[Rfam]
RNA sequence: AUACUUACCUGGACGGGGUCGACGGGGGCCCGUGGCCUGGGUCAAUGGCCCACAUUGCACUUGGUGGGCGCGUUGGCCCAUCAUCUUCCCAAGUGGGAGAGUGAACGUCAUAAUUUGUGGUAGAGGGGGUACGCGUUCGCGCGGCCCCUG
Dot-bracket structure: ...........((((((((((.(((....)))))))))(((.(.(((..((((..........)).))..)))..)))).((((((.((.....)).))).))).))))...............(((((..((((....)))).))))).
Description:
The family of this 150-nucleotide sequence from Triticum turgidum is "U1 spliceosomal RNA". The family's RNA type in Rfam is spliceosomal small nuclear RNA. A reference for the family is Zwieb (1997), "The uRNA database", Nucleic Acids Res. The family's consensus secondary structure is taken from published work.